Rfam assigns this 398-nucleotide RNA sequence from Desulfuromusa kysingii to the family "Bacterial RNase P class A". Rfam classes the family as a ribozyme.
RNA sequence: AAAGAAGGACAGGUGAUCGCCGUCUGUCGUAGCAUUAGCUGCGUUGGAGGGAGGAAAGUCCGGGCUCCACAGGACAGGAUGGUUCCUAACGGGAACCGAGGGUAACCUCAGGGAAAGUGCCACAGAGAGGAGACCGUCUACACCAGCCUUCGGGCGCAGUGUGGAUAAGGGUGAAAGGGUGAGGUAAGAGCUCACCAGUUCUGGCGGUGACGUCAGAAGCUCGGUAAACCCCAUCCGGAGCAAGGUCGAAUAGGGGAACGUUUGAGGGUUGUCCGCCCAAAGUUCCCGGGUCUGGCUGCUGGAGACCGUUGGCAACGACGGUCCUAGAUGAAUGAUCACUGUCCCGUUGCGGGUAACUUCAGCGGGAAACAGAACCCGGCUUACGUACUUCUUUGGCC
Numbered sequence: 001a002a003a004g005a006a007g008g009a010c011a012g013g014u015g016a017u018c019g020c021c022g023u024c025u026g027u028c029g030u031a032g033c034a035u036u037a038g039c040u041g042c043g044u045u046g047g048a049g050g051g052a053g054g055a056a057a058g059u060c061c062g063g064g065c066u067c068c069a070c071a072g073g074a075c076a077g078g079a080u081g082g083u084u085c086c087u088a089a090c091g092g093g094a095a096c097c098g099a100g101g102g103u104a105a106c107c108u109c110a111g112g113g114a115a116a117g118u119g120c121c122a123c124a125g126a127g128a129g130g131a132g133a134c135c136g137u138c139u140a141c142a143c144c145a146g147c148c149u150u151c152g153g154g155c156g157c158a159g160u161g162u163g164g165a166u167a168a169g170g171g172u173g174a175a176a177g178g179g180u181g182a183g184g185u186a187a188g189a190g191c192u193c194a195c196c197a198g199u200u201c202u203g204g205c206g207g208u209g210a211c212g213u214c215a216g217a218a219g220c221u222c223g224g225u226a227a228a229c230c231c232c233a234u235c236c237g238g239a240g241c242a243a244g245g246u247c248g249a250a251u252a253g254g255g256g257a258a259c260g261u262u263u264g265a266g267g268g269u270u271g272u273c274c275g276c277c278c279a280a281a282g283u284u285c286c287c288g289g290g291u292c293u294g295g296c297u298g299c300u301g302g303a304g305a306c307c308g309u310u311g312g313c314a315a316c317g318a319c320g321g322u323c324c325u326a327g328a329u330g331a332a333u334g335a336u337c338a339c340u341g342u343c344c345c346g347u348u349g350c351g352g353g354u355a356a357c358u359u360c361a362g363c364g365g366g367a368a369a370c371a372g373a374a375c376c377c378g379g380c381u382u383a384c385g386u387a388c389u390u391c392u393u394u395g396g397c398c
Base pairs, nucleotide, nucleotide: 001394002393003392004391005390006389007388009386010385012340013339014338015337016336017335018334020051021050023048024047025046026045028043029042030041031040032039056382057381058380060379061378062377063376064375065240066239067238068237072274073273074272075271077236078235079234080233081232082096083095084094085093086092097111098109099108100107101106112231113230117229118228119225120224121223134170135169136166137165138164139163140162141161142160143159178196179195180194181193182192183191198220199218200217201216202215203214204213205212206211244297245296246295247294254287255286256285257284258283259282266278267277268276269275304323305322306321307320308319309318310317311316